M-box riboswitch aptamer (ykoK leader): a 162-nucleotide RNA sequence from Clostridium chauvoei. The organism belongs to Clostridium chauvoei, within Bacteria. The family has 159 seed sequences and 1,095 matches in Rfam 15.1. M-box riboswitch, also know as ykoK leader is described as a metaloregulatory RNA that sense divalent metals and function as a genetic control element of genes related to divalent metal transport in bacteria. It scores 109 bits against the family's covariance model.
RNA sequence: AAAUAUCCUCGGUAGGUGAGGUUACUUUAAGGAUAAGGAUUGAUACCGUGAAAGGGUGGAAACACUCUCAGCUGGUUAGCAGAUUUUACCGAACAAAGAAGGUUUAAUUUAAUUCAAUUUCAUGCCUUAAAGAGCUAAAACUUGAACGAGUAGAGUGUAUUU
Numbered sequence: 001a002a003a004u005a006u007c008c009u010c011g012g013u014a015g016g017u018g019a020g021g022u023u024a025c026u027u028u029a030a031g032g033a034u035a036a037g038g039a040u041u042g043a044u045a046c047c048g049u050g051a052a053a054g055g056g057u058g059g060a061a062a063c064a065c066u067c068u069c070a071g072c073u074g075g076u077u078a079g080c081a082g083a084u085u086u087u088a089c090c091g092a093a094c095a096a097a098g099a100a101g102g103u104u105u106a107a108u109u110u111a112a113u114u115c116a117a118u119u120u121c122a123u124g125c126c127u128u129a130a131a132g133a134g135c136u137a138a139a140a141c142u143u144g145a146a147c148g149a150g151u152a153g154a155g156u157g158u159a160u161u162u
Stems, first nucleotide, its partner, number of pairs: 005158002008155003011147001013100001015142003020136003025132008039118005046074001048072002055066004082109004088103003